[Rfam]
RNA sequence: UUUACUAUAUGAAGGUAUUAUUCUAAAAAGCCAAAGGAAUAAUACCUGAGGUCUUGUAAA
Numbered sequence: 001u002u003u004a005c006u007a008u009a010u011g012a013a014g015g016u017a018u019u020a021u022u023c024u025a026a027a028a029a030g031c032c033a034a035a036g037g038a039a040u041a042a043u044a045c046c047u048g049a050g051g052u053c054u055u056g057u058a059a060a
Stems, first nucleotide, its partner, number of pairs: 001060005014046010